[Rfam]
This 98-nucleotide sequence from Triticum urartu belongs to the Rfam family "MIR2275 microRNA precursor family".

RNA sequence: UCACUGAAAGUGAGAGUUGGAGGAAAACAAACAGAUCAUGGCUAACUAAUCAUGGUCACCGAUCAGCUUGUUUUCCUCCAAUAUCUCACCUUCAGUUG
Numbered sequence: 001u002c003a004c005u006g007a008a009a010g011u012g013a014g015a016g017u018u019g020g021a022g023g024a025a026a027a028c029a030a031a032c033a034g035a036u037c038a039u040g041g042c043u044a045a046c047u048a049a050u051c052a053u054g055g056u057c058a059c060c061g062a063u064c065a066g067c068u069u070g071u072u073u074u075c076c077u078c079c080a081a082u083a084u085c086u087c088a089c090c091u092u093c094a095g096u097u098g
Stems, first nucleotide, its partner, number of pairs: 004095005011088004016082006023075008032066001
The base pairs follow the family's consensus structure, which was predicted with RNAalifold. Gene Ontology terms of the family: RISC complex and miRNA-mediated post-transcriptional gene silencing. Taxonomically the source falls in Triticum (Eukaryota, Spermatophyta, Magnoliopsida, Triticinae).